This 160-nucleotide RNA sequence from Neobacillus massiliamazoniensis belongs to the Rfam family "glmS glucosamine-6-phosphate activated ribozyme aptamer". Rfam links the family to the GO terms regulation of gene expression and catalytic activity. The organism belongs to Neobacillus, within Bacteria. It is annotated as a riboswitch.
[Rfam]
RNA sequence: GUUUUUCAUAAAGCGCCUGAACUACCCUGAGUGUGGGUUAGUUGACGAGGAGGAGGUUUAUCGAAACUUCGGCGGAUACCUCCCGGUUAUAGUGCACAACCGAAAGUUCUUCUUAAAACACCAAGGUGACUUGGUCGACAAAGUGAAGAAAAUGCACCUA
Numbered sequence: 001g002u003u004u005u006u007c008a009u010a011a012a013g014c015g016c017c018u019g020a021a022c023u024a025c026c027c028u029g030a031g032u033g034u035g036g037g038u039u040a041g042u043u044g045a046c047g048a049g050g051a052g053g054a055g056g057u058u059u060a061u062c063g064a065a066a067c068u069u070c071g072g073c074g075g076a077u078a079c080c081u082c083c084c085g086g087u088u089a090u091a092g093u094g095c096a097c098a099a100c101c102g103a104a105a106g107u108u109c110u111u112c113u114u115a116a117a118a119c120a121c122c123a124a125g126g127u128g129a130c131u132u133g134g135u136c137g138a139c140a141a142a143g144u145g146a147a148g149a150a151a152a153u154g155c156a157c158c159u160a
Base pairs, nucleotide, nucleotide: 020043021042022041023040024039026037027036029034052083053082054081055080056079061072062071063070064069084102085101086100087099088098107150108149109148110147111146112145120135121134122133123132124131125130